This 130-nucleotide sequence from Saimiri boliviensis belongs to the Rfam family "Small nucleolar RNA SNORA64/SNORA10 family". It scores 82 bits against the family's covariance model. NCBI's taxonomy places the organism under Eukaryota, Deuterostomia, Dipnotetrapodomorpha, Amniota, Saimiri boliviensis. From the family's description: This family belongs to the H/ACA class of small nucleolar RNAs (snoRNAs) which act as guides in the the modification of uridines to pseudouridines. Rfam classes the family as an H/ACA-box small nucleolar RNA.

[Rfam]
RNA sequence: CCUCUCUUAGCUCUAUGUAGUUGCACUUGGCUUCACCUGUGUAACUUUUGUAAUGGCGAGAGAAAGAAAAGAUCUCAGGACCUCAGAUGCGCCUACUGUGGCCUCUCUUUCCUUGAGGGGAGCAAUAGGC
Numbered sequence: 001c002c003u004c005u006c007u008u009a010g011c012u013c014u015a016u017g018u019a020g021u022u023g024c025a026c027u028u029g030g031c032u033u034c035a036c037c038u039g040u041g042u043a044a045c046u047u048u049u050g051u052a053a054u055g056g057c058g059a060g061a062g063a064a065a066g067a068a069a070a071g072a073u074c075u076c077a078g079g080a081c082c083u084c085a086g087a088u089g090c091g092c093c094u095a096c097u098g099u100g101g102c103c104u105c106u107c108u109u110u111c112c113u114u115g116a117g118g119g120g121a122g123c124a125a126u127a128g129g130c
Stems, first nucleotide, its partner, number of pairs: 002066002005063004011058001013056003019046008074120002077114003085108003089104001091102003
Dot-bracket structure: .((.((((..(.(((...((((((((............)))))))).......))).).)))).)).......((.(((.....(((.(.(((......))).).)))...)))....))..........
Its family is annotated with nucleolus and RNA processing in the Gene Ontology.